mir-8799 microRNA precursor family: a 95-nucleotide RNA from Canis lupus. Clan: mir-8791 microRNA precursor clan. Pairs were carried over by alignment from the consensus structure, which was predicted with RNAalifold. Gene Ontology terms of the family: miRNA-mediated post-transcriptional gene silencing and RISC complex. NCBI's taxonomy places the organism under Eukaryota, Vertebrata, Mammalia, Theria, Canis lupus.
RNA sequence: GUGGGGAGUGCUGGAUCCUGUGCUGUGUCCCCCGGCGCCCUGGGGUCUGGGGCCUGCUCUGCUGGAUUCGAGCUCCUGGAGCCGCGCAGCCCCCU
Dot-bracket structure: (.((((...(((((..((.(.(.(.((((..((((.((...(.(.(....).)).)).)))..)))..)).).).).))..))).))..)))).)